[Rfam]
RNA sequence: ACAGUACAAACUGAACAGGCCGGAUAUCUUAUCUGGGGCCGGGUCACAACGUGACAGUGGAAUGAAUUGUUUUAUCCGCGGGACAGUA
Number, nucleotide and partner (000 for none) at each position: 001a000002c000003a000004g000005u000006a000007c000008a000009a000010a087011c086012u085013g084014a000015a000016c082017a000018g040019g039020c038021c037022g034023g033024a032025u031026a030027u000028c000029u000030u026031a025032u024033c023034u022035g000036g000037g021038g020039c019040c018041g000042g000043g055044u054045c053046a052047c051048a000049a000050c000051g047052u046053g045054a044055c043056a000057g079058u078059g077060g076061a075062a000063u000064g000065a000066a000067u000068u000069g000070u000071u000072u000073u000074a000075u061076c060077c059078g058079c057080g000081g000082g016083a000084c013085a012086g011087u010088a000
RNA: NiCo (Nickel/Cobalt) riboswitch aptamer
Organism: uncultured Bacteroides sp.